Background: This 143-nucleotide RNA from Tianweitania populi belongs to the Rfam family "Alphaproteobacterial sRNA BjrC1505". The literature on the family includes a 2012 paper in RNA Biol by Madhugiri et al., "Small RNAs of the Bradyrhizobium/Rhodopseudomonas lineage and their analysis". NCBI's taxonomy places the organism under Bacteria, Pseudomonadati, Pseudomonadota, Hyphomicrobiales, Tianweitania. The pairing is the family consensus, mapped onto this sequence.
RNA sequence: UAGGGCGGCUUAACGCUUCAUUAAGGUUUACAGGUGCUUACUGUGGGCAUCCAGCGAUCCUGGAUUUGACCGAGUGGUGCAGCCACUUUGUUUGACGCCUCCCUGUUAACUCCUGAGAGCCGCUUUCCCGCGGCUCUUUUUUU
Numbered sequence: 001u002a003g004g005g006c007g008g009c010u011u012a013a014c015g016c017u018u019c020a021u022u023a024a025g026g027u028u029u030a031c032a033g034g035u036g037c038u039u040a041c042u043g044u045g046g047g048c049a050u051c052c053a054g055c056g057a058u059c060c061u062g063g064a065u066u067u068g069a070c071c072g073a074g075u076g077g078u079g080c081a082g083c084c085a086c087u088u089u090g091u092u093u094g095a096c097g098c099c100u101c102c103c104u105g106u107u108a109a110c111u112c113c114u115g116a117g118a119g120c121c122g123c124u125u126u127c128c129c130g131c132g133g134c135u136c137u138u139u140u141u142u143u
Stems, first nucleotide, its partner, number of pairs: 001053001003051002005016002017047002022045002025042003059068001072088006094107004115138009
Dot-bracket structure: (.((((........))((...((.(((............))).))))..)).).....(........)...((((((.....)))))).....((((......)))).......(((((((((......))))))))).....